[Rfam]
RNA sequence: AGCAUAUUUUGCGAUGGCGGAGCUCGACCGCCGGUCGAAGUGAUGGUGGGUUUCAUCGACGCGCACCGGGAUGCGCACGGGGUCGAGCCGAUCUGCGACGUGCUGCCGAUCGCCCCG
Numbered sequence: 001a002g003c004a005u006a007u008u009u010u011g012c013g014a015u016g017g018c019g020g021a022g023c024u025c026g027a028c029c030g031c032c033g034g035u036c037g038a039a040g041u042g043a044u045g046g047u048g049g050g051u052u053u054c055a056u057c058g059a060c061g062c063g064c065a066c067c068g069g070g071a072u073g074c075g076c077a078c079g080g081g082g083u084c085g086a087g088c089c090g091a092u093c094u095g096c097g098a099c100g101u102g103c104u105g106c107c108g109a110u111c112g113c114c115c116c117g
Stems, first nucleotide, its partner, number of pairs: 016032005078117005089112002092109002095106003
Rfam assigns this 117-nucleotide sequence from Paracoccus denitrificans to the family "ALIL pseudoknot". Rfam links the family to the GO term positive regulation of translational frameshifting. The sequence is in the family's curated seed alignment.